[Rfam]
RNA sequence: AGCUAUAUCAAGGGGAUCAUGGUAGAAUUUUUUUCGUCAAGAUCCCUGUCAGGCUUUAAACAAAGCCUCCGAAUUAUACC
Number, nucleotide and partner (000 for none) at each position: 001a000002g000003c000004u000005a000006u000007a000008u000009c000010a000011a000012g000013g046014g045015g044016a043017u042018c041019a000020u000021g080022g079023u078024a077025g000026a075027a074028u040029u039030u000031u000032u000033u000034u000035c000036g000037u000038c000039a029040a028041g018042a017043u016044c015045c014046c013047u000048g000049u000050c000051a068052g067053g066054c065055u064056u063057u000058a000059a000060a000061c000062a000063a056064a055065g054066c053067c052068u051069c000070c000071g000072a000073a000074u027075u026076a000077u024078a023079c022080c021

Background:
A member of the RNA family "Mammalian CPEB3 ribozyme" from Muraenolepis orangiensis, 80 nucleotides long. Rfam's curators write: The mammalian CPEB3 ribozyme is a self cleaving RNA located in the second intron of the CPEB3 gene which belongs to a family of genes regulating messenger RNA polyadenylation. Pairs were carried over by alignment from the consensus structure, which is taken from published work. NCBI's taxonomy places the organism under Eukaryota, Actinopterygii, Gadiformes, Muraenolepididae, Muraenolepis.